[Rfam]
RNA sequence: CUAAUGUACACUUGUAAGUCGCUUUGGAUAAAAGCGUCUGCCAAAUGCCCUAAA
Numbered sequence: 001c002u003a004a005u006g007u008a009c010a011c012u013u014g015u016a017a018g019u020c021g022c023u024u025u026g027g028a029u030a031a032a033a034g035c036g037u038c039u040g041c042c043a044a045a046u047g048c049c050c051u052a053a054a
Base pairs, nucleotide, nucleotide: 013043014041015040016039020036021035022034023033024032025031

UnaL2 LINE 3' element: a 54-nucleotide sequence from Muraenolepis orangiensis. Lineage of the source: Eukaryota > Opisthokonta > Clupeocephala > Paracanthopterygii > Muraenolepis. By type it is a cis-regulatory element.